Shown here is an 86-nucleotide sequence from Branchiostoma floridae, a member of the family "mir-2060 microRNA precursor family".

[Rfam]
RNA sequence: GUGUGUGGAUGGUGUUCAGCACCAGGGACAGAUGUUUUCACCUGUGUGUGAAUGGUGGUCAGCACCAAUGACGAAUGUAAUUGUGU
Numbered sequence: 001g002u003g004u005g006u007g008g009a010u011g012g013u014g015u016u017c018a019g020c021a022c023c024a025g026g027g028a029c030a031g032a033u034g035u036u037u038u039c040a041c042c043u044g045u046g047u048g049u050g051a052a053u054g055g056u057g058g059u060c061a062g063c064a065c066c067a068a069u070g071a072c073g074a075a076u077g078u079a080a081u082u083g084u085g086u
Stems, first nucleotide, its partner, number of pairs: 001072002010067007018059001020057005026047001028045004033040002
The base pairs follow the family's consensus structure, which was predicted with RNAalifold. A search with the family's covariance model found it, with a score of 68 bits.